[Rfam]
RNA: Small nucleolar RNA SNORD103/SNORD85
Organism: Synaphobranchus kaupii
RNA sequence: CCUGGCUGUGAUGACACACUUGCCCUCACUGAGAGCUCUGCGCGUUGAUGAGAAACUCGUUUUGUACUCAUUUGAUCUGAGCUUGG
Numbered sequence: 001c002c003u004g005g006c007u008g009u010g011a012u013g014a015c016a017c018a019c020u021u022g023c024c025c026u027c028a029c030u031g032a033g034a035g036c037u038c039u040g041c042g043c044g045u046u047g048a049u050g051a052g053a054a055a056c057u058c059g060u061u062u063u064g065u066a067c068u069c070a071u072u073u074g075a076u077c078u079g080a081g082c083u084u085g086g
Stems, first nucleotide, its partner, number of pairs: 001086002004083003